[Rfam]
RNA sequence: UUGAAUAAUCGGCAAACUUACUGAAAAGUAAGGACGCAAAGCUUAAGGGCCUAAGUAAUUUAUAUGGCUGCCAGUUGCAAAU
Numbered sequence: 001u002u003g004a005a006u007a008a009u010c011g012g013c014a015a016a017c018u019u020a021c022u023g024a025a026a027a028g029u030a031a032g033g034a035c036g037c038a039a040a041g042c043u044u045a046a047g048g049g050c051c052u053a054a055g056u057a058a059u060u061u062a063u064a065u066g067g068c069u070g071c072c073a074g075u076u077g078c079a080a081a082u
Stems, first nucleotide, its partner, number of pairs: 012037002017032006040076004047072002049068003056062002
The record is an 82-nucleotide RNA sequence from Acetobacterium woodii, which matches "c-di-GMP-I riboswitch aptamer" in Rfam. The source organism's lineage runs through Bacteria, Bacillati, Bacillota, Eubacteriales and Acetobacterium woodii. The family's consensus secondary structure is taken from published work. Its family is annotated with cyclic-di-GMP binding in the Gene Ontology.